[Rfam]
RNA: c-di-AMP riboswitch aptamer (ydaO/yuaA leader)
RNA sequence: UGCCCCCGGUCGACGAUUUCUCACCCACAGGCGGCAGGAACGGGGGAACCAUCUCCGAGCAUCGAAAGGAUUCGAUGCUCUCGGGGUGAAGCCGUGAGCGACGGGCACCGGACCGUGAUUCGGUGCGACCACACGUCCCCAGGAAAUCCCUGGCAUGGCCGGGCAGUUCCCAGCCCGAAUCCGACAGCUCACCUCGCAGGCGUGGGGAAGGACCA
Number, nucleotide and partner (000 for none) at each position: 001u000002g000003c038004c037005c000006c000007c000008g000009g000010u000011c000012g000013a000014c000015g000016a000017u000018u000019u000020c000021u000022c000023a000024c000025c000026c000027a000028c000029a000030g000031g000032c000033g000034g000035c000036a000037g004038g003039a000040a000041c196042g195043g194044g193045g192046g000047a000048a000049c000050c083051a000052u000053c000054u000055c000056c000057g000058a000059g000060c000061a000062u000063c000064g000065a000066a000067a000068g000069g000070a000071u000072u000073c000074g000075a000076u000077g000078c000079u000080c000081u000082c000083g050084g182085g181086g180087u000088g000089a000090a000091g000092c158093c157094g156095u155096g000097a000098g000099c000100g000101a000102c000103g000104g000105g000106c000107a000108c000109c000110g000111g000112a000113c000114c000115g000116u000117g000118a000119u000120u000121c000122g000123g000124u000125g000126c000127g000128a000129c000130c000131a000132c000133a000134c000135g000136u000137c000138c000139c000140c000141a000142g000143g000144a000145a000146a000147u000148c000149c000150c000151u000152g000153g000154c000155a095156u094157g093158g092159c000160c000161g176162g175163g174164c173165a000166g000167u000168u000169c000170c000171c000172a000173g164174c163175c162176c161177g000178a000179a000180u086181c085182c084183g000184a000185c000186a000187g000188c000189u000190c000191a000192c045193c044194u043195c042196g041197c000198a000199g000200g000201c000202g000203u000204g000205g000206g000207g000208a000209a000210g000211g000212a000213c000214c000215a000